The record is an 85-nucleotide RNA from Aquarana catesbeiana, which matches "mir-425 microRNA precursor family" in Rfam. Gene Ontology terms of the family: miRNA-mediated post-transcriptional gene silencing and RISC complex. NCBI's taxonomy places the organism under Eukaryota, Opisthokonta, Chordata, Sarcopterygii, Aquarana. The family has 19 seed sequences and 486 matches in Rfam 15.1. A search with the family's covariance model found it, with a score of 76 bits.
[Rfam]
RNA sequence: GAUCCGCCUUGGAAUGACACGAUCACUCCCGUUGAGCCCAGCACCGCCUCGCCAUCGGGAAUAUCGUGUCGCUCUAAAGCUCUCU
Numbered sequence: 001g002a003u004c005c006g007c008c009u010u011g012g013a014a015u016g017a018c019a020c021g022a023u024c025a026c027u028c029c030c031g032u033u034g035a036g037c038c039c040a041g042c043a044c045c046g047c048c049u050c051g052c053c054a055u056c057g058g059g060a061a062u063a064u065c066g067u068g069u070c071g072c073u074c075u076a077a078a079g080c081u082c083u084c085u
Stems, first nucleotide, its partner, number of pairs: 006080002009077004016070008027060005033054002036052002